[Rfam]
RNA sequence: GGAGGUUGGCGGUGGACGAACUAUUCGCCAACCCGGUCAGAUCCGGAAGGAAGCAGCCGUAACGAAAUUCGUUCGGGUCGCUGCCAACCUCCCAC
Numbered sequence: 001g002g003a004g005g006u007u008g009g010c011g012g013u014g015g016a017c018g019a020a021c022u023a024u025u026c027g028c029c030a031a032c033c034c035g036g037u038c039a040g041a042u043c044c045g046g047a048a049g050g051a052a053g054c055a056g057c058c059g060u061a062a063c064g065a066a067a068u069u070c071g072u073u074c075g076g077g078u079c080g081c082u083g084c085c086a087a088c089c090u091c092c093c094a095c
Stems, first nucleotide, its partner, number of pairs: 004089011017075005024066004034059004042051003

Record summary: The record is a 95-nucleotide RNA sequence from Oceanibacterium hippocampi, which matches "Bacterial small signal recognition particle RNA" in Rfam. The base pairs follow the family's consensus structure, which is taken from published work. NCBI's taxonomy places the organism under Bacteria, Pseudomonadota, Alphaproteobacteria, Sneathiellales, Oceanibacterium.